[Rfam]
RNA: Small nucleolar RNA Z247
RNA sequence: CCCAUCCAGGAUGAUGAGCUCAUCUCCUACCUGUUGCAUGGGCUGGACAUGGACUACCAGCCCCUCGUCUCCACCAUCGACGCCCGCGUCACGCCGGUCUCCCUCGAUGAGUUGUACGCCAUGCUGAGCAAUUUUGAUC
Numbered sequence: 001c002c003c004a005u006c007c008a009g010g011a012u013g014a015u016g017a018g019c020u021c022a023u024c025u026c027c028u029a030c031c032u033g034u035u036g037c038a039u040g041g042g043c044u045g046g047a048c049a050u051g052g053a054c055u056a057c058c059a060g061c062c063c064c065u066c067g068u069c070u071c072c073a074c075c076a077u078c079g080a081c082g083c084c085c086g087c088g089u090c091a092c093g094c095c096g097g098u099c100u101c102c103c104u105c106g107a108u109g110a111g112u113u114g115u116a117c118g119c120c121a122u123g124c125u126g127a128g129c130a131a132u133u134u135u136g137a138u139c
Stems, first nucleotide, its partner, number of pairs: 004138003008134001088108003093103001